[Rfam]
Shown here is a 100-nucleotide sequence from Cuscuta europaea, a member of the family "Small nucleolar RNA Z279/snoR105/snoR108".
RNA sequence: GGGAUGUGAUGAGUGGUCAAUACUUGCAUUCGUUGCAAGAGGAGUGCCCGCCUUACCUGUUACGACAAUUGGGCGCUCUCACUAUUUUCCAUCUGAUCCC
Numbered sequence: 001g002g003g004a005u006g007u008g009a010u011g012a013g014u015g016g017u018c019a020a021u022a023c024u025u026g027c028a029u030u031c032g033u034u035g036c037a038a039g040a041g042g043a044g045u046g047c048c049c050g051c052c053u054u055a056c057c058u059g060u061u062a063c064g065a066c067a068a069u070u071g072g073g074c075g076c077u078c079u080c081a082c083u084a085u086u087u088u089c090c091a092u093c094u095g096a097u098c099c100c
Stems, first nucleotide, its partner, number of pairs: 001100004014091003023039005041079008057071001059069002
Annotation:
The base pairs follow the family's consensus structure, which was predicted with PFOLD. It is annotated as a C/D-box small nucleolar RNA. Rfam describes the family as follows. This family includes the plant snoRNAs known as Z279, snoR105 and snoR108.